[Rfam]
RNA sequence: CCCAUAAGUAAUAAAAAGUCUAUUUAAGUCCCUUAACUUUGUUUAAGGUAACGGUUUGGUCCCUUAUGUUAAUUCAAUUCAAAGAAACGUUAAAUUUUGGUCCCUUAACUUAUUUAAUUAGUAUUAGUUUGGUCUUUAAGCUUAACGGUUUUUUGAAUUAAAUUAACAUAAGGGACCAAACCGAUACUUUAAAUAAAGUUAAGGGACAUAAACAAACCUUUUAUUACUUAUGAGA
Numbered sequence: 001c002c003c004a005u006a007a008g009u010a011a012u013a014a015a016a017a018g019u020c021u022a023u024u025u026a027a028g029u030c031c032c033u034u035a036a037c038u039u040u041g042u043u044u045a046a047g048g049u050a051a052c053g054g055u056u057u058g059g060u061c062c063c064u065u066a067u068g069u070u071a072a073u074u075c076a077a078u079u080c081a082a083a084g085a086a087a088c089g090u091u092a093a094a095u096u097u098u099g100g101u102c103c104c105u106u107a108a109c110u111u112a113u114u115u116a117a118u119u120a121g122u123a124u125u126a127g128u129u130u131g132g133u134c135u136u137u138a139a140g141c142u143u144a145a146c147g148g149u150u151u152u153u154u155g156a157a158u159u160a161a162a163u164u165a166a167c168a169u170a171a172g173g174g175a176c177c178a179a180a181c182c183g184a185u186a187c188u189u190u191a192a193a194u195a196a197a198g199u200u201a202a203g204g205g206a207c208a209u210a211a212a213c214a215a216a217c218c219u220u221u222u223a224u225u226a227c228u229u230a231u232g233a234g235a
Base pairs, nucleotide, nucleotide: 003232004231005230006229007228008227023212024211025210028207029206031204032203033202034201035200036199037198038197039196040195041194042193043192045190046189047188
Annotation
The family of this 235-nucleotide RNA sequence from Medicago truncatula is "MIR2655 microRNA precursor family". It scores 192 bits against the family's covariance model. Lineage of the source: Eukaryota > Streptophytina > rosids > Trifolieae > Medicago. The base pairs follow the family's consensus structure, which was predicted with RNAalifold.